[Rfam]
RNA sequence: GCAACAGGUAGGGUUGGAGGGAUAGCCGUCCUCCUCGCUGAAACCGGCUAUACGCAGCGCCAGUAACCAGUGGUUAAAGUAUAAUUUUCAGGUACCUGCCAUCUUGCUUGAAUGAAAUCACGCCGUGAUUGGUGGUCACAAGAGAUAGCUAUUUCGAAGGAAAUAGUGAUUCUUCAACUACUGAAACCGGACAGGUCCGGGAGGGAGCAUCCGUAUAGUGGGGUGGUUGCGCUUUCACGUCUACGUGAAUGACUUUGUAGGAUUGGAAAAGGACCGGGGAAUCAUAUGAAUCCCAUUGGUGCUGUUGC
Numbered sequence: 001g002c003a004a005c006a007g008g009u010a011g012g013g014u015u016g017g018a019g020g021g022a023u024a025g026c027c028g029u030c031c032u033c034c035u036c037g038c039u040g041a042a043a044c045c046g047g048c049u050a051u052a053c054g055c056a057g058c059g060c061c062a063g064u065a066a067c068c069a070g071u072g073g074u075u076a077a078a079g080u081a082u083a084a085u086u087u088u089c090a091g092g093u094a095c096c097u098g099c100c101a102u103c104u105u106g107c108u109u110g111a112a113u114g115a116a117a118u119c120a121c122g123c124c125g126u127g128a129u130u131g132g133u134g135g136u137c138a139c140a141a142g143a144g145a146u147a148g149c150u151a152u153u154u155c156g157a158a159g160g161a162a163a164u165a166g167u168g169a170u171u172c173u174u175c176a177a178c179u180a181c182u183g184a185a186a187c188c189g190g191a192c193a194g195g196u197c198c199g200g201g202a203g204g205g206a207g208c209a210u211c212c213g214u215a216u217a218g219u220g221g222g223g224u225g226g227u228u229g230c231g232c233u234u235u236c237a238c239g240u241c242u243a244c245g246u247g248a249a250u251g252a253c254u255u256u257g258u259a260g261g262a263u264u265g266g267a268a269a270a271g272g273a274c275c276g277g278g279g280a281a282u283c284a285u286a287u288g289a290a291u292c293c294c295a296u297u298g299g300u301g302c303u304g305u306u307g308c
Stems, first nucleotide, its partner, number of pairs: 001308007012061002015059001016034006037058004067299007079287001084282006091275003095271001097267001099265001101263007110253001116250001118248005124239005131232001132230008141174001144171003148167008178221006188213004196205003
Background
A member of the RNA family "Archaeal signal recognition particle RNA" from a Nitrososphaerota archaeon, 308 nucleotides long. The literature on the family includes a 2002 paper in Curr Opin Struct Biol by Wild et al., "Towards the structure of the mammalian signal recognition particle".